A member of the RNA family "Alphaproteobacterial ar14" from Rhizobium metallidurans, 125 nucleotides long. It is annotated as a small RNA. Rfam's curators write: Smr14C2 was renamed NfeR1 (Nodule Formation Efficiency RNA) highly expressed in salt stress and during the symbiotic interaction on legume roots. Its family is annotated with biological process involved in symbiotic interaction in the Gene Ontology.
RNA sequence: GAGUUUGCAAGAGCCUCACUCCUCCUCCGAGAGGCGCUUGCGCGAACAGUGGCACUCCUCCUCCCAGCUGCUGUUCAUCUAUUUUAAGAAGCCUGCCGCACCUCCUCCCGCGGCAGGCUUUUUUC
Number, nucleotide and partner (000 for none) at each position: 001g000002a000003g000004u000005u000006u000007g041008c040009a039010a000011g037012a000013g035014c034015c033016u032017c031018a000019c000020u000021c000022c000023u000024c000025c000026u000027c000028c000029g000030a000031g017032a016033g015034g014035c013036g000037c011038u000039u009040g008041c007042g000043c000044g076045a075046a074047c073048a072049g071050u070051g069052g068053c067054a000055c000056u000057c000058c000059u000060c000061c000062u000063c000064c000065c000066a000067g053068c052069u051070g050071c049072u048073g047074u046075u045076c044077a000078u000079c000080u000081a000082u000083u000084u000085u000086a000087a000088g000089a120090a119091g118092c117093c116094u115095g114096c113097c112098g111099c110100a000101c000102c000103u000104c000105c000106u000107c000108c000109c000110g099111c098112g097113g096114c095115a094116g093117g092118c091119u090120u089121u000122u000123u000124u000125c000